Description: The family of this 83-nucleotide RNA sequence is "Plastid-psbM 3UTR RNA". Rfam 15.1 lists 627 matches to the family in 337 species. Pairs were carried over by alignment from the consensus structure, which was predicted with LocARNA. By type it is a cis-regulatory element. For this family Rfam cites "Retrograde signaling in plants: A critical review focusing on the GUN pathway and beyond" (Richter et al., Plant Commun, 2023).

RNA sequence: GGGAUCCGAGAGUAUGGUAAGAAAGAAAUUUUUUUCUUAUCAUACUCUCUAUUAGUGUUAUAGUAAUGUAUAAAAUAAAAUUG
Numbered sequence: 001g002g003g004a005u006c007c008g009a010g011a012g013u014a015u016g017g018u019a020a021g022a023a024a025g026a027a028a029u030u031u032u033u034u035u036c037u038u039a040u041c042a043u044a045c046u047c048u049c050u051a052u053u054a055g056u057g058u059u060a061u062a063g064u065a066a067u068g069u070a071u072a073a074a075a076u077a078a079a080a081u082u083g
Stems, first nucleotide, its partner, number of pairs: 008049012021036006
Dot-bracket structure: .......((((((((((((.((((((....)))))).))))))))))))..................................